[Rfam]
RNA sequence: UGUUUGAUCAUUUGUAAGUCGCUCUGGAUAAGAGCGUCUGCUAAAUGACUUAAA
Numbered sequence: 001u002g003u004u005u006g007a008u009c010a011u012u013u014g015u016a017a018g019u020c021g022c023u024c025u026g027g028a029u030a031a032g033a034g035c036g037u038c039u040g041c042u043a044a045a046u047g048a049c050u051u052a053a054a
Base pairs, nucleotide, nucleotide: 013043014041015040016039020036021035022034023033024032025031
The family of this 54-nucleotide RNA sequence from Salmo trutta is "UnaL2 LINE 3' element". It is annotated as a cis-regulatory element. Pairs were carried over by alignment from the consensus structure, which is taken from published work. It scores 71 bits against the family's covariance model. Lineage of the source: Eukaryota > Opisthokonta > Deuterostomia > Euteleosteomorpha > Salmo. Rfam describes the family as follows. The eel long interspersed element (LINE) UnaL2 and its partner short interspersed element (SINE) share a conserved 3' tail containing a stem-loop that is critical for their retrotransposition.